[Rfam]
RNA: Betaproteobacteria toxic small RNA
RNA sequence: CGUCUCCUCCAUGUCUCCUCCAAGGAAUAUGGAUUAAAGCCCGCCUCUUGAGGCGGGCAUUUUUUU
Numbered sequence: 001c002g003u004c005u006c007c008u009c010c011a012u013g014u015c016u017c018c019u020c021c022a023a024g025g026a027a028u029a030u031g032g033a034u035u036a037a038a039g040c041c042c043g044c045c046u047c048u049u050g051a052g053g054c055g056g057g058c059a060u061u062u063u064u065u066u
Stems, first nucleotide, its partner, number of pairs: 008033007039058007